mir-87 microRNA precursor family: a 72-nucleotide RNA from Megaselia scalaris. The organism belongs to Megaselia, within Eukaryota. A search with the family's covariance model found it, with a score of 59 bits. On this family, see Ruby et al., Genome Res 2007: "Evolution, biogenesis, expression, and target predictions of a substantially expanded set of Drosophila microRNAs". Its family is annotated with miRNA-mediated post-transcriptional gene silencing and RISC complex in the Gene Ontology. The base pairs follow the family's consensus structure, which was predicted with RNAalifold.
Nucleotides: 072
Base pairs, nucleotide, nucleotide: 003069004068005067006066007063008062009061010060011059012058014055015054016053017052018051020049021048023046025044026043027042
Number, partner (000 for none) and nucleotide at each position: 001000c002000a003069u004068u005067c006066g007063u008062g009061c010060c011059u012058g013000u014055a015054u016053u017052u018051u019000g020049c021048u022000g023046a024000g025044c026043c027042g028000u029000u030000u031000c032000c033000a034000a035000a036000a037000a038000c039000u040000u041000c042027c043026g044025g045000u046023u047000g048021a049020g050000c051018a052017a053016a054015a055014u056000u057000u058012c059011a060010g061009g062008u063007g064000u065000g066006u067005g068004a069003g070000a071000a072000a